[Rfam]
RNA sequence: CCGAAAUCUGCGCCGGAACCAAGCGGCAUCCAACAUUUUUCACAGCCAUCCUCACCGCCAGGGCCGUGAGCCCCUGAACGGACGGGUGCCAGCAGUAGCUAGUGGCAUCAACUACUGCUGUAAGCCCGUAGUUCAGGAGAUUGGGGUCGGUGGCGGCGAGCAUGGCUGUGACAAAUGUUGGAUGCCGCUUGGUUCCGGCGCAGAUUUCGG
Numbered sequence: 001c002c003g004a005a006a007u008c009u010g011c012g013c014c015g016g017a018a019c020c021a022a023g024c025g026g027c028a029u030c031c032a033a034c035a036u037u038u039u040u041c042a043c044a045g046c047c048a049u050c051c052u053c054a055c056c057g058c059c060a061g062g063g064c065c066g067u068g069a070g071c072c073c074c075u076g077a078a079c080g081g082a083c084g085g086g087u088g089c090c091a092g093c094a095g096u097a098g099c100u101a102g103u104g105g106c107a108u109c110a111a112c113u114a115c116u117g118c119u120g121u122a123a124g125c126c127c128g129u130a131g132u133u134c135a136g137g138a139g140a141u142u143g144g145g146g147u148c149g150g151u152g153g154c155g156g157c158g159a160g161c162a163u164g165g166c167u168g169u170g171a172c173a174a175a176u177g178u179u180g181g182a183u184g185c186c187g188c189u190u191g192g193u194u195c196c197g198g199c200g201c202a203g204a205u206u207u208c209g210g
Stems, first nucleotide, its partner, number of pairs: 001210033035176004040171002043168007051160003055156006062148004067143003071139001073137007084126002090120009100110001

Shown here is a 210-nucleotide sequence from Ectocarpus sp. CCAP 1310/34, a member of the family "MIR8622 microRNA precursor family". Rfam links the family to the GO terms miRNA-mediated post-transcriptional gene silencing and RISC complex. The family has 3 seed sequences and 93 matches in Rfam 15.1. The base pairs follow the family's consensus structure, which was predicted with RNAalifold.